[Rfam]
RNA: Selenocysteine transfer RNA
RNA sequence: GGAAGAGAAUCGUUCCCCGGUGGGGCGCCAGGACUUCAACUCCUGUAGGGGCUGCCAGCAGUCCCUGGUGGGUUCGACUCCCUCUCUCUUCC
Numbered sequence: 001g002g003a004a005g006a007g008a009a010u011c012g013u014u015c016c017c018c019g020g021u022g023g024g025g026c027g028c029c030a031g032g033a034c035u036u037c038a039a040c041u042c043c044u045g046u047a048g049g050g051g052c053u054g055c056c057a058g059c060a061g062u063c064c065c066u067g068g069u070g071g072g073u074u075c076g077a078c079u080c081c082c083u084c085u086c087u088c089u090u091c092c
Base pairs, nucleotide, nucleotide: 001092002091003090004089005088006087007086008085011027012026013025015024016023017022029045030044031043032042033041048065049064050063051062052061070082071081072080